Description: Phenylalanine leader peptide: a 124-nucleotide RNA from Sodalis ligni. Gene Ontology term of the family: cellular amino acid metabolic process. It scores 77 bits against the family's covariance model. The source organism's lineage runs through Bacteria, Pseudomonadati, Pseudomonadota, Gammaproteobacteria and Sodalis. On this family, see Gurvich et al., Nucleic Acids Res 2010: "Two groups of phenylalanine biosynthetic operon leader peptides genes: a high level of apparently incidental frameshifting in decoding Escherichia coli pheL".
[Rfam]
RNA sequence: CAAGCAUGAAUGCUGCUAUUUUCCGUUUCUUUUUUUACUUUAGCGCCUGAAUAACGGGGGCUUGCGCGUAAGGAAAGAAACGAAAAAUAGCGCUAAAGCCUCCCGGUGUGGAGGCUUUUUUUUG
Numbered sequence: 001c002a003a004g005c006a007u008g009a010a011u012g013c014u015g016c017u018a019u020u021u022u023c024c025g026u027u028u029c030u031u032u033u034u035u036u037a038c039u040u041u042a043g044c045g046c047c048u049g050a051a052u053a054a055c056g057g058g059g060g061c062u063u064g065c066g067c068g069u070a071a072g073g074a075a076a077g078a079a080a081c082g083a084a085a086a087a088u089a090g091c092g093c094u095a096a097a098g099c100c101u102c103c104c105g106g107u108g109u110g111g112a113g114g115c116u117u118u119u120u121u122u123u124g
Stems, first nucleotide, its partner, number of pairs: 015091004020086003024082010035071004044056001060065001095118009